The family of this 103-nucleotide RNA from Limnohabitans sp. 103DPR2 is "Glycine riboswitch aptamer". This family represents the bacterial glycine riboswitch. The match comes from Rfam's covariance-model search (49 bits). The source organism's lineage runs through Bacteria, Pseudomonadati, Burkholderiales, Comamonadaceae and Limnohabitans. The family has 44 seed sequences and 9,425 matches in Rfam 15.1. Its family is annotated with glycine biosynthetic process in the Gene Ontology.

RNA sequence: UUUGAGCCGUCAGGAGAGUGCAGGCUUGUAAAAGACUGCCACCGAAGGCGCAGGAAAUUUUUAUAUUUCUGAACGCUCAGGUACCCAGGACUGACAAACGUUG
Numbered sequence: 001u002u003u004g005a006g007c008c009g010u011c012a013g014g015a016g017a018g019u020g021c022a023g024g025c026u027u028g029u030a031a032a033a034g035a036c037u038g039c040c041a042c043c044g045a046a047g048g049c050g051c052a053g054g055a056a057a058u059u060u061u062u063a064u065a066u067u068u069c070u071g072a073a074c075g076c077u078c079a080g081g082u083a084c085c086c087a088g089g090a091c092u093g094a095c096a097a098a099c100g101u102u103g
Stems, first nucleotide, its partner, number of pairs: 009095005020039004041082003044078002048076003054069005